Rfam assigns this 359-nucleotide part of an RNA from Halobacteriales archaeon YIM 93590 to the family "Archaeal small subunit ribosomal RNA". Its family is annotated with ribosome and structural constituent of ribosome in the Gene Ontology. Rfam 15.1 lists 709 matches to the family in 491 species. It is one of the family's seed sequences.
RNA sequence: GGCCUAAAGCGUCCGUAGCCGGCCGGGCAAGUCCGUCGGGAAAUCCGCGCGCCCAACGCGCGGGCGUCCGGCGGAAACUGCUCGGCUAGGGACCGGGAGACCUGCGGGGUACGUCCGGGGUAGGAGUGAAAUCCCGUAAUCCCGGACGGACCGCCGAUGGCGAAAGCACCGCAGGAGACCGGAUCCGACGGUGAGGGACGAAAGCCGGGGUCACGAACCGGAUUAGAUACCCGGGUAGUCCCGGCCGUAAACGAUGCCCGCUAGGUGUGGCGCGGGGUACGACCCCGCGCUAUGCCGCAGCGAAGGCGCUAAGCGGGCCGCCUGGGAAGUACGUCCGCAAGGAUGAAACUUAAAGGAAU
Numbered sequence: 001g002g003c004c005u006a007a008a009g010c011g012u013c014c015g016u017a018g019c020c021g022g023c024c025g026g027g028c029a030a031g032u033c034c035g036u037c038g039g040g041a042a043a044u045c046c047g048c049g050c051g052c053c054c055a056a057c058g059c060g061c062g063g064g065c066g067u068c069c070g071g072c073g074g075a076a077a078c079u080g081c082u083c084g085g086c087u088a089g090g091g092a093c094c095g096g097g098a099g100a101c102c103u104g105c106g107g108g109g110u111a112c113g114u115c116c117g118g119g120g121u122a123g124g125a126g127u128g129a130a131a132u133c134c135c136g137u138a139a140u141c142c143c144g145g146a147c148g149g150a151c152c153g154c155c156g157a158u159g160g161c162g163a164a165a166g167c168a169c170c171g172c173a174g175g176a177g178a179c180c181g182g183a184u185c186c187g188a189c190g191g192u193g194a195g196g197g198a199c200g201a202a203a204g205c206c207g208g209g210g211u212c213a214c215g216a217a218c219c220g221g222a223u224u225a226g227a228u229a230c231c232c233g234g235g236u237a238g239u240c241c242c243g244g245c246c247g248u249a250a251a252c253g254a255u256g257c258c259c260g261c262u263a264g265g266u267g268u269g270g271c272g273c274g275g276g277g278u279a280c281g282a283c284c285c286c287g288c289g290c291u292a293u294g295c296c297g298c299a300g301c302g303a304a305g306g307c308g309c310u311a312a313g314c315g316g317g318c319c320g321c322c323u324g325g326g327a328a329g330u331a332c333g334u335c336c337g338c339a340a341g342g343a344u345g346a347a348a349c350u351u352a353a354a355g356g357a358a359u
Base pairs, nucleotide, nucleotide: 001322002321003320009319011199012198013197014196016193018192019191020190022086023085024084025083026082027081028080030079031078032075033074034073035072036071037070038069039068040067045063046062047061048060049059050058051057090186091185092184093182094181095180096179101175102174103173104172105171106170107169108152109151112148113147114146115145116144117143118142119141123134124133125132160167161166204245205244206243207242208241209240213239214238218234219233220232221231256318257317258316259315260314261313264296265295266294267293268292269291270290271289272288273287274286275285276284277283300307301306324351325350326349333344334343335342336341
Lineage of the source: Archaea > Methanobacteriati > Methanobacteriota > Halobacteria > Halobacteriales.